[Rfam]
RNA sequence: AACUUAUCAAGAGUGAGGGAGGGACUGGCCCGAUGAACUCCGGCAACCUGCUUGGCCGAAAGCAAGGUGCUAAUUCCAGCAAAAUGGGUACCAUUUUGGAAGAUAAGGC
Numbered sequence: 001a002a003c004u005u006a007u008c009a010a011g012a013g014u015g016a017g018g019g020a021g022g023g024a025c026u027g028g029c030c031c032g033a034u035g036a037a038c039u040c041c042g043g044c045a046a047c048c049u050g051c052u053u054g055g056c057c058g059a060a061a062g063c064a065a066g067g068u069g070c071u072a073a074u075u076c077c078a079g080c081a082a083a084a085u086g087g088g089u090a091c092c093a094u095u096u097u098g099g100a101a102g103a104u105a106a107g108g109c
Stems, first nucleotide, its partner, number of pairs: 003107006013041001015040003021031003025079004042071004047067002049064004075101001080098006
The family of this 109-nucleotide RNA from Parageobacillus caldoxylosilyticus is "SAM riboswitch aptamer (S box leader)". The match comes from Rfam's covariance-model search (87 bits). Pairs were carried over by alignment from the consensus structure, which is taken from published work.